The record is a 43-nucleotide RNA from Escherichia coli, which matches "ES036 (CssrF) sRNA" in Rfam. The base pairs follow the family's consensus structure, which was predicted with RNAfold. It scores 38 bits against the family's covariance model. About the family: Differentially expressed under several chemical stress conditions. Also identified in Shigella as CssrF.
RNA sequence: AAAAUCAUGCAAAUUCAAUAUAUUGCAUGGCUUGUGUAGGCCC
Numbered sequence: 001a002a003a004a005u006c007a008u009g010c011a012a013a014u015u016c017a018a019u020a021u022a023u024u025g026c027a028u029g030g031c032u033u034g035u036g037u038a039g040g041c042c043c
Stems, first nucleotide, its partner, number of pairs: 005030002008027005